[Rfam]
RNA sequence: CUCGCCGCCAUGCGGGGCAGCGGGGCGCUGGGAAACGUUUCAGCACCGCCUCUGGUGGUGGGUUUGCGGACGGGGGCGGG
Dot-bracket structure: ((((((.((.(.((.((......(.(((((((...(((....))...)..))))))).)....)).)).).)).))))))
A member of the RNA family "mir-2290 microRNA precursor family" from Vicugna pacos, 80 nucleotides long. The organism belongs to Vicugna, within Eukaryota. The match comes from Rfam's covariance-model search (58 bits).